Rfam assigns this 98-nucleotide RNA from Vitis vinifera to the family "Small nucleolar RNA Z161/Z228". For this family Rfam cites "The high diversity of snoRNAs in plants: identification and comparative study of 120 snoRNA genes from Oryza sativa" (Chen et al., Nucleic Acids Res, 2003). The sequence is in the family's curated seed alignment. The family is grouped with related families in Rfam's "SNORD35 clan". The source organism's lineage runs through Eukaryota, Euphyllophyta, Pentapetalae, Vitaceae and Vitis.

RNA sequence: AAACCAGGUGAUGAGUUUGGAUUAAAUUUUCUCACGACGGUCGUCUGAGACACAAUGUGUCGCCUUUGAUGCAUCGAUCCAAUACUUCUCUGAUGGUU
Numbered sequence: 001a002a003a004c005c006a007g008g009u010g011a012u013g014a015g016u017u018u019g020g021a022u023u024a025a026a027u028u029u030u031c032u033c034a035c036g037a038c039g040g041u042c043g044u045c046u047g048a049g050a051c052a053c054a055a056u057g058u059g060u061c062g063c064c065u066u067u068g069a070u071g072c073a074u075c076g077a078u079c080c081a082a083u084a085c086u087u088c089u090c091u092g093a094u095g096g097u098u
Stems, first nucleotide, its partner, number of pairs: 001098002004095001051059003